[Rfam]
The family of this 88-nucleotide sequence from Vibrio nereis is "c-di-GMP-I-GGC riboswitch aptamer". Rfam 15.1 lists 1,298 matches to the family in 717 species.
RNA sequence: CACGAACAGGGCAAACUAUUCCGAAAGGGUAGGACGCAAAGCCACCGGCCUUCAAGUACAUUGUUACCAGGUAGCGGGGUUGCCGAAC
Numbered sequence: 001c002a003c004g005a006a007c008a009g010g011g012c013a014a015a016c017u018a019u020u021c022c023g024a025a026a027g028g029g030u031a032g033g034a035c036g037c038a039a040a041g042c043c044a045c046c047g048g049c050c051u052u053c054a055a056g057u058a059c060a061u062u063g064u065u066a067c068c069a070g071g072u073a074g075c076g077g078g079g080u081u082g083c084c085g086a087a088c
Stems, first nucleotide, its partner, number of pairs: 003085002011037002016032004021028002035074001040081004045077003048072003
Annotation:
For this family Rfam cites "Structural and biochemical characterization of linear dinucleotide analogues bound to the c-di-GMP-I aptamer" (Smith et al., Biochemistry, 2012).